Source information:
The record is a 92-nucleotide sequence from Gopherus agassizii, which matches "mir-1784 microRNA precursor family" in Rfam.
[Rfam]
RNA sequence: CAAUUUCUUAGGGCCCAAUUCUGCUCUCAUUGAAAUCAAUGAGAGUUCUACCAUUGACUUAACUGGGAGCAGAAUUGGGACCUAAGAUGAAA
Numbered sequence: 001c002a003a004u005u006u007c008u009u010a011g012g013g014c015c016c017a018a019u020u021c022u023g024c025u026c027u028c029a030u031u032g033a034a035a036u037c038a039a040u041g042a043g044a045g046u047u048c049u050a051c052c053a054u055u056g057a058c059u060u061a062a063c064u065g066g067g068a069g070c071a072g073a074a075u076u077g078g079g080a081c082c083u084a085a086g087a088u089g090a091a092a
Stems, first nucleotide, its partner, number of pairs: 006087007014079016031062001036057006
Dot-bracket structure: .....(((((((.((((((((((((((((.(....((((((..........))))))....).)))))))))))))))).))))))).....
Annotation
Rfam 15.1 lists 349 matches to the family in 347 species. Lineage of the source: Eukaryota > Eumetazoa > Deuterostomia > Tetrapoda > Gopherus. Rfam links the family to the GO terms RISC complex and miRNA-mediated post-transcriptional gene silencing.